The family of this 76-nucleotide RNA from Tetraodon nigroviridis is "mir-27 microRNA precursor family".

[Rfam]
RNA sequence: UGAAGGCACAGAGCUUAGCUAAUUGGUGAGCAUUGAUCCCUGCUAUGUGUUGUUCACAGUGGCUAAGUUCAGUGCC
Numbered sequence: 001u002g003a004a005g006g007c008a009c010a011g012a013g014c015u016u017a018g019c020u021a022a023u024u025g026g027u028g029a030g031c032a033u034u035g036a037u038c039c040c041u042g043c044u045a046u047g048u049g050u051u052g053u054u055c056a057c058a059g060u061g062g063c064u065a066a067g068u069u070c071a072g073u074g075c076c
Stems, first nucleotide, its partner, number of pairs: 011070010026057007

The literature on the family includes a 2005 paper in Genes Dev by Chen et al., "The developmental miRNA profiles of zebrafish as determined by small RNA cloning".
The source organism's lineage runs through Eukaryota, Deuterostomia, Osteoglossocephalai, Tetradontoidea and Tetraodon.